[Rfam]
RNA sequence: UAUUGAAAAAGGUAAACUUGACGAAAGUCAAGGACACAAAGCGUGAAGUCUAAGGCAAAUUGCUAUGACGGUUCGGCUGCCAAA
Numbered sequence: 001u002a003u004u005g006a007a008a009a010a011g012g013u014a015a016a017c018u019u020g021a022c023g024a025a026a027g028u029c030a031a032g033g034a035c036a037c038a039a040a041g042c043g044u045g046a047a048g049u050c051u052a053a054g055g056c057a058a059a060u061u062g063c064u065a066u067g068a069c070g071g072u073u074c075g076g077c078u079g080c081c082a083a084a
Base pairs, nucleotide, nucleotide: 012037013036017032018031019030020029021028022027040078041077042076045074046073047072048069049068050067055063056062057061